[Rfam]
RNA sequence: UAAGUAGACUGAGUAAUCGCAGGUACAGUGCUGCAAAGCCGUACUCUGAGGAAAGUCCGGGCUCCAUAGGGCAGGAUGCUUGAUAACGUCAAGUGGGGGUAACCCUAAGGAUAGUGCCACAGAAAUAAACCGCCAACAUAGUUGGUAAGGAUGGAACGGUUGAGGUAAGAGCUCACCAGCGAUUAGGUGACUAAUCGGCUAGGUAAACCCCAUCUGGAGCAAGACCUAAUAGGAAGAAGAUAAGGAUAGCCCGUCCAGUUCUUCGGGUUGGUCGCAUGAAGUGGCAGGCAACUGUCAUUCAAGAUAGAUGAUUACUCACGACAGAACCCGGCUUAUAGGUCUACUUUCAAG
Numbered sequence: 001u002a003a004g005u006a007g008a009c010u011g012a013g014u015a016a017u018c019g020c021a022g023g024u025a026c027a028g029u030g031c032u033g034c035a036a037a038g039c040c041g042u043a044c045u046c047u048g049a050g051g052a053a054a055g056u057c058c059g060g061g062c063u064c065c066a067u068a069g070g071g072c073a074g075g076a077u078g079c080u081u082g083a084u085a086a087c088g089u090c091a092a093g094u095g096g097g098g099g100u101a102a103c104c105c106u107a108a109g110g111a112u113a114g115u116g117c118c119a120c121a122g123a124a125a126u127a128a129a130c131c132g133c134c135a136a137c138a139u140a141g142u143u144g145g146u147a148a149g150g151a152u153g154g155a156a157c158g159g160u161u162g163a164g165g166u167a168a169g170a171g172c173u174c175a176c177c178a179g180c181g182a183u184u185a186g187g188u189g190a191c192u193a194a195u196c197g198g199c200u201a202g203g204u205a206a207a208c209c210c211c212a213u214c215u216g217g218a219g220c221a222a223g224a225c226c227u228a229a230u231a232g233g234a235a236g237a238a239g240a241u242a243a244g245g246a247u248a249g250c251c252c253g254u255c256c257a258g259u260u261c262u263u264c265g266g267g268u269u270g271g272u273c274g275c276a277u278g279a280a281g282u283g284g285c286a287g288g289c290a291a292c293u294g295u296c297a298u299u300c301a302a303g304a305u306a307g308a309u310g311a312u313u314a315c316u317c318a319c320g321a322c323a324g325a326a327c328c329c330g331g332c333u334u335a336u337a338g339g340u341c342u343a344c345u346u347u348c349a350a351g
Stems, first nucleotide, its partner, number of pairs: 002346009011336001012316007020048004024043003028039001053334003057331005062219004069252004074215005079093005094108001095106004109210002114208002116204003130150002132146006158177002161175004179199001180197007223273004233264006244256004280299008
Bacterial RNase P class A: a 351-nucleotide sequence from Clostridium sp. 'deep sea'. Taxonomically the source falls in Clostridium (Bacteria, Bacillati, Clostridia, Clostridiaceae). Clan: RNaseP clan. It scores 303 bits against the family's covariance model. The base pairs follow the family's consensus structure, which is taken from published work.